A member of the RNA family "Small nucleolar RNA SNORA5" from Hemiprocne comata, 129 nucleotides long. Rfam's curators write: ACA5 is a member of the H/ACA class of snoRNA that guide the sites of modification of uridines to pseudouridines. Gene Ontology terms of the family: nucleolus and RNA processing.
RNA sequence: CGCAGCCCUGUCAAAUUCGAUCCCGGCCUCUUCCAUGGCAGGGACCGGCCAACCGGCUGCCACAGCAACUCGUGUGUCCCAUGAGCCUCAUGUCUCCUUCCCAUGGGAUGCUGGGGGAUGGAAUCACCC
Dot-bracket structure: .((((............((.((((.(((........))).)))).)).........))))..............(((((......((.(((...........)))))........))))).........
Numbered sequence: 001c002g003c004a005g006c007c008c009u010g011u012c013a014a015a016u017u018c019g020a021u022c023c024c025g026g027c028c029u030c031u032u033c034c035a036u037g038g039c040a041g042g043g044a045c046c047g048g049c050c051a052a053c054c055g056g057c058u059g060c061c062a063c064a065g066c067a068a069c070u071c072g073u074g075u076g077u078c079c080c081a082u083g084a085g086c087c088u089c090a091u092g093u094c095u096c097c098u099u100c101c102c103a104u105g106g107g108a109u110g111c112u113g114g115g116g117g118a119u120g121g122a123a124u125c126a127c128c129c
Stems, first nucleotide, its partner, number of pairs: 002060004018047002021044004026039003075120005086107002089105003

By type it is an H/ACA-box small nucleolar RNA.